Small nucleolar RNA snoR144: a 143-nucleotide sequence from Brassica rapa. Rfam's curators put it in the seed alignment. For this family Rfam cites "Mining small RNA sequencing data: a new approach to identify small nucleolar RNAs in Arabidopsis" (Chen and Wu, Nucleic Acids Res, 2009). It is annotated as an H/ACA-box small nucleolar RNA. Rfam links the family to the GO terms RNA processing and nucleolus. Lineage of the source: Eukaryota > Streptophytina > Gunneridae > malvids > Brassica.
[Rfam]
RNA sequence: AAGGCAACUUUUUGCCGAGUGAAUCGAAUAUCGAUAUCUCUCUUUUUCCCAGUUGCCUAAAUCAUCUUAUGGCUGUGUGAAGAAUACUUUGAACGGUUAUGUAUUUUUCUAAAUAACCGAUCUUUUCUUCUGCUGCUACAUUU
Numbered sequence: 001a002a003g004g005c006a007a008c009u010u011u012u013u014g015c016c017g018a019g020u021g022a023a024u025c026g027a028a029u030a031u032c033g034a035u036a037u038c039u040c041u042c043u044u045u046u047u048c049c050c051a052g053u054u055g056c057c058u059a060a061a062u063c064a065u066c067u068u069a070u071g072g073c074u075g076u077g078u079g080a081a082g083a084a085u086a087c088u089u090u091g092a093a094c095g096g097u098u099a100u101g102u103a104u105u106u107u108u109c110u111a112a113a114u115a116a117c118c119g120a121u122c123u124u125u126u127c128u129u130c131u132g133c134u135g136c137u138a139c140a141u142u143u
Stems, first nucleotide, its partner, number of pairs: 003057007017042003021038002023035004064141002067138001071134003079130005091122002095118006103110001